[Rfam]
RNA sequence: AUACUUACCUGGCAGGGGGGAUACCAUGAUCCUGAAGGUGGUUUUCUCAGGGCAAGGCUCAUCCAUUGCACUCUGGAUUUGCUGACUCCUGUGAUUUCCCCUAAUGUGGGAAACUCAACUGCGUAGUUUGUGGUAGUGGGGGACUGUUCGUGCUCUAU
Numbered sequence: 001a002u003a004c005u006u007a008c009c010u011g012g013c014a015g016g017g018g019g020g021a022u023a024c025c026a027u028g029a030u031c032c033u034g035a036a037g038g039u040g041g042u043u044u045u046c047u048c049a050g051g052g053c054a055a056g057g058c059u060c061a062u063c064c065a066u067u068g069c070a071c072u073c074u075g076g077a078u079u080u081g082c083u084g085a086c087u088c089c090u091g092u093g094a095u096u097u098c099c100c101c102u103a104a105u106g107u108g109g110g111a112a113a114c115u116c117a118a119c120u121g122c123g124u125a126g127u128u129u130g131u132g133g134u135a136g137u138g139g140g141g142g143a144c145u146g147u148u149c150g151u152g153c154u155c156u157a158u
Stems, first nucleotide, its partner, number of pairs: 012122004016048006023042005049090004056083003061078004092117003095113003099109002143158001146155001
Rfam assigns this 158-nucleotide sequence from Sapajus apella to the family "U1 spliceosomal RNA". The match comes from Rfam's covariance-model search (125 bits). Pairs were carried over by alignment from the consensus structure, which is taken from published work. A reference for the family is Zwieb (1997), "The uRNA database", Nucleic Acids Res. It is annotated as a spliceosomal small nuclear RNA. The organism belongs to Sapajus, within Eukaryota.